[Rfam]
Nucleotides: 058
Stems, first nucleotide, its partner, number of pairs: 001058005014044010
Number, partner (000 for none) and nucleotide at each position: 001058u002057u003056c004055a005054c006000a007000g008000a009000a010000u011000g012000a013000u014044g015043g016042c017041a018040u019039c020038u021037u022036c023035c024000u025000a026000a027000a028000c029000c030000c031000u032000u033000c034000u035023g036022g037021g038020a039019g040018a041017u042016g043015u044014c045000u046000g047000a048000g049000a050000a051000g052000u053000u054005g055004u056003g057002a058001a